[Rfam]
RNA sequence: CCCGGUCCUCGGUGGUGGCUUCCGGAACGAGAGACUUCCGUGAGCUUCGAUCGAUGACCGUC
Numbered sequence: 001c002c003c004g005g006u007c008c009u010c011g012g013u014g015g016u017g018g019c020u021u022c023c024g025g026a027a028c029g030a031g032a033g034a035c036u037u038c039c040g041u042g043a044g045c046u047u048c049g050a051u052c053g054a055u056g057a058c059c060g061u062c
Base pairs, nucleotide, nucleotide: 003060004059005058006057007056009054010053011052012051013050017046018045019044020043021042023040024039025038026037027036
Shown here is a 62-nucleotide RNA sequence from Bowdeniella nasicola, a member of the family "Actino-pnp RNA". The source organism's lineage runs through Bacteria, Bacillati, Actinomycetes, Actinomycetaceae and Bowdeniella. A search with the family's covariance model found it, with a score of 61 bits. By type it is a cis-regulatory element. The base pairs follow the family's consensus structure, which is taken from published work.